[Rfam]
A member of the RNA family "Group II catalytic intron D1-D4-3" from Cuneatibacter caecimuris, 178 nucleotides long.
RNA sequence: UUUAUCGUGAGGUAAAAUCUGAAGGAAGCUGUAAGCAAACCUCUGGUCCGACGGACAGAAAUCACAUAUAAGGCUAGGCUGCGAGAGAUAAGUCGGCAAAGAGCGACGAAGUCUAAUAACUAUCACAUUUGUAGUAGCAGAGUAAAUGUGGCGGAUAUAUGGAGGGAAAGAGCGUGCA
Numbered sequence: 001u002u003u004a005u006c007g008u009g010a011g012g013u014a015a016a017a018u019c020u021g022a023a024g025g026a027a028g029c030u031g032u033a034a035g036c037a038a039a040c041c042u043c044u045g046g047u048c049c050g051a052c053g054g055a056c057a058g059a060a061a062u063c064a065c066a067u068a069u070a071a072g073g074c075u076a077g078g079c080u081g082c083g084a085g086a087g088a089u090a091a092g093u094c095g096g097c098a099a100a101g102a103g104c105g106a107c108g109a110a111g112u113c114u115a116a117u118a119a120c121u122a123u124c125a126c127a128u129u130u131g132u133a134g135u136a137g138c139a140g141a142g143u144a145a146a147u148g149u150g151g152c153g154g155a156u157a158u159a160u161g162g163a164g165g166g167a168a169a170g171a172g173c174g175u176g177c178a
Base pairs, nucleotide, nucleotide: 001016002015003014004013005012006011030176031175032174036170040165041164042163043162044161045160046156047155048154049153050152062151063150064149065148066147067146073143074142075141078138079137080136081135082134086114087113088112089111092107093106094105095104